Description
Shown here is a 106-nucleotide RNA sequence from Sutcliffiella cohnii, a member of the family "SAM riboswitch aptamer (S box leader)". Pairs were carried over by alignment from the consensus structure, which is taken from published work.
[Rfam]
RNA sequence: CUCUUAUCAAGAGUGACCGAGGGGUCAGGCCCGAUGACGUCCAGCAACCUUCAAAAACUUGAAAGGUGCUAAAUCCUGCAGACACUUUUUGUCUGGAAGAUAAGAG
Numbered sequence: 001c002u003c004u005u006a007u008c009a010a011g012a013g014u015g016a017c018c019g020a021g022g023g024g025u026c027a028g029g030c031c032c033g034a035u036g037a038c039g040u041c042c043a044g045c046a047a048c049c050u051u052c053a054a055a056a057a058c059u060u061g062a063a064a065g066g067u068g069c070u071a072a073a074u075c076c077u078g079c080a081g082a083c084a085c086u087u088u089u090u091g092u093c094u095g096g097a098a099g100a101u102a103a104g105a106g
Stems, first nucleotide, its partner, number of pairs: 001106008013042001015041003021032003026078004043070004048066002050063004074098001079095006
NCBI's taxonomy places the organism under Bacteria, Bacillota, Bacilli, Bacillaceae, Sutcliffiella.